[Rfam]
RNA sequence: UUGCCCGAUGAUUAUAAAAAGAUGCGUUAAAAGGACUUAUGCUGGAUUCUUUUUUUUUCCCUUUUUUGUUUUUACUCUUUCUCUUACUUUUCUAUACUUUUUCUUUCUUUGAAUGUCCAGCGUCCUGUGAACGAAGAUUAUGAGAUAUGAGGGCAA
Numbered sequence: 001u002u003g004c005c006c007g008a009u010g011a012u013u014a015u016a017a018a019a020a021g022a023u024g025c026g027u028u029a030a031a032a033g034g035a036c037u038u039a040u041g042c043u044g045g046a047u048u049c050u051u052u053u054u055u056u057u058u059c060c061c062u063u064u065u066u067u068g069u070u071u072u073u074a075c076u077c078u079u080u081c082u083c084u085u086a087c088u089u090u091u092c093u094a095u096a097c098u099u100u101u102u103c104u105u106u107c108u109u110u111g112a113a114u115g116u117c118c119a120g121c122g123u124c125c126u127g128u129g130a131a132c133g134a135a136g137a138u139u140a141u142g143a144g145a146u147a148u149g150a151g152g153g154c155a156a
Base pairs, nucleotide, nucleotide: 001156002155003154004153005152006151032072033071034070035069036068
A member of the RNA family "Small nucleolar RNA SNORD97" from Ochotona princeps, 156 nucleotides long.
The base pairs follow the family's consensus structure, which was predicted with WAR.
It is annotated as a C/D-box small nucleolar RNA.
Gene Ontology terms of the family: nucleolus and RNA processing.
The sequence is in the family's curated seed alignment.